MIR5272 microRNA precursor family: a 73-nucleotide sequence from Medicago truncatula. The family has 6 seed sequences and 271 matches in Rfam 15.1. Lineage of the source: Eukaryota > Mesangiospermae > fabids > Papilionoideae > Medicago. The family's consensus secondary structure was predicted with RNAalifold. A search with the family's covariance model found it, with a score of 65 bits.
RNA sequence: UUUGAGGAGAAUUGAUUAUGUUUGGAUAAACUUGUUUAAAAGUGAUUUUUAUAAGUUGAUGUUGUUUGGAUAG
Numbered sequence: 001u002u003u004g005a006g007g008a009g010a011a012u013u014g015a016u017u018a019u020g021u022u023u024g025g026a027u028a029a030a031c032u033u034g035u036u037u038a039a040a041a042g043u044g045a046u047u048u049u050u051a052u053a054a055g056u057u058g059a060u061g062u063u064g065u066u067u068g069g070a071u072a073g
Base pairs, nucleotide, nucleotide: 011060012059013058014057015056016055017054020052021051024048025047026046027045030043031042032041033040